[Rfam]
RNA sequence: AGCUCAAUAGGGGUCUAAUUUGUUUCUAAACCUUUGCUAUAGAAGGGUUUUGGGGGUCAUUAAAUGGCUAUUUUUUUCAUGUU
Numbered sequence: 001a002g003c004u005c006a007a008u009a010g011g012g013g014u015c016u017a018a019u020u021u022g023u024u025u026c027u028a029a030a031c032c033u034u035u036g037c038u039a040u041a042g043a044a045g046g047g048u049u050u051u052g053g054g055g056g057u058c059a060u061u062a063a064a065u066g067g068c069u070a071u072u073u074u075u076u077u078c079a080u081g082u083u
Stems, first nucleotide, its partner, number of pairs: 009076004016062003024054002030048006
The record is an 83-nucleotide RNA from Chinchilla lanigera, which matches "Stem loopII regulatory element in POLB" in Rfam. The literature on the family includes a 2007 paper in Nucleic Acids Res by Sarnowska et al., "Hairpin structure within the 3'UTR of DNA polymerase beta mRNA acts as a post-transcriptional regulatory element and interacts with Hax-1". It is annotated as a cis-regulatory element. Taxonomically the source falls in Chinchilla (Eukaryota, Deuterostomia, Euarchontoglires, Rodentia).